[Rfam]
RNA sequence: UGCCAAUGCCUAUCACAUAUCUGCCUGUCCUAUGACAAACAUGGCAGGUAGAUAUUUGAUAGGCAUUGGCA
Dot-bracket structure: (((((((((((((((.(((((((((((((.(.(.....).).))))))))))))).)))))))))))))))
Shown here is a 71-nucleotide sequence from Homo sapiens, a member of the family "mir-3927 microRNA precursor family".
The sequence is in the family's curated seed alignment.